[Rfam]
RNA: mir-221 microRNA precursor family
RNA sequence: CCCGUGUGCUGCUCAGUAGUCAGUGUAGAUCCUGUGUUGUAAUCAGCAGCUACAUCUGGCUACUGGGUCUCUCAUGGCGCAC
Numbered sequence: 001c002c003c004g005u006g007u008g009c010u011g012c013u014c015a016g017u018a019g020u021c022a023g024u025g026u027a028g029a030u031c032c033u034g035u036g037u038u039g040u041a042a043u044c045a046g047c048a049g050c051u052a053c054a055u056c057u058g059g060c061u062a063c064u065g066g067g068u069c070u071c072u073c074a075u076g077g078c079g080c081a082c
Base pairs, nucleotide, nucleotide: 013066014065015064016063017062018061020059021058022057023055024054025053026052027051028050032049033048034047035046